[Rfam]
RNA sequence: GACCCGUUAGCUCAGUUGGUAGAGCAUCUCACUUUUAAUGAGGGGGCCAAUGGUUCGAAUCCAUUACGGGUCA
Numbered sequence: 001g002a003c004c005c006g007u008u009a010g011c012u013c014a015g016u017u018g019g020u021a022g023a024g025c026a027u028c029u030c031a032c033u034u035u036u037a038a039u040g041a042g043g044g045g046g047c048c049a050a051u052g053g054u055u056c057g058a059a060u061c062c063a064u065u066a067c068g069g070g071u072c073a
Base pairs, nucleotide, nucleotide: 001072002071003070004069005068006067007066010025011024012023013022027043028042029041030040031039049065050064051063052062053061
Shown here is a 73-nucleotide RNA from Arcobacter nitrofigilis, a member of the family "tRNA". Rfam links the family to the GO term triplet codon-amino acid adaptor activity. The organism belongs to Arcobacter nitrofigilis, within Bacteria.